[Rfam]
RNA sequence: AACACUCUGGAGAGCGCAGUCGCCGUAAGGCAGACGGCCACCGAAGGGGCAGCGGAAGCCGGUCUUCCGUAAUCUCUCAGGUACCAAGGACAGAGGGGUGAAG
Numbered sequence: 001a002a003c004a005c006u007c008u009g010g011a012g013a014g015c016g017c018a019g020u021c022g023c024c025g026u027a028a029g030g031c032a033g034a035c036g037g038c039c040a041c042c043g044a045a046g047g048g049g050c051a052g053c054g055g056a057a058g059c060c061g062g063u064c065u066u067c068c069g070u071a072a073u074c075u076c077u078c079a080g081g082u083a084c085c086a087a088g089g090a091c092a093g094a095g096g097g098g099u100g101a102a103g
Base pairs, nucleotide, nucleotide: 003097005095006094007093008092009091016038017037019035020034021033040082041081042080043078044077047076048075049074053069054068055067056066057065
RNA: Glycine riboswitch aptamer
Organism: Betaproteobacteria bacterium SCN1